[Rfam]
RNA: STAXI RNA
RNA sequence: CGUUGUCAUCGACAACUGCCAAUGCCCUGGUGAUUUGAGAAGGGCGCCUUCGGGUAAUCACAUGCCAAUGCCACAUAAAACCUGAGAGUGGCGCCUUCGGGUGGUAAACCUGUUUAACCUCUGAGAACAGGUACUCCUGGCGAGUUGAGGUCCAU
Numbered sequence: 001c002g003u004u005g006u007c008a009u010c011g012a013c014a015a016c017u018g019c020c021a022a023u024g025c026c027c028u029g030g031u032g033a034u035u036u037g038a039g040a041a042g043g044g045c046g047c048c049u050u051c052g053g054g055u056a057a058u059c060a061c062a063u064g065c066c067a068a069u070g071c072c073a074c075a076u077a078a079a080a081c082c083u084g085a086g087a088g089u090g091g092c093g094c095c096u097u098c099g100g101g102u103g104g105u106a107a108a109c110c111u112g113u114u115u116a117a118c119c120u121c122u123g124a125g126a127a128c129a130g131g132u133a134c135u136c137c138u139g140g141c142g143a144g145u146u147g148a149g150g151u152c153c154a155u
Base pairs, nucleotide, nucleotide: 002016003015004014005013006012007011024045025044026043027042028041030061031060032059033058034057035056046055047054048053070092071091072090073089074088080105081104082103093102094101095100109131110130111129112128113127117151118150119149120148121147133145134144135143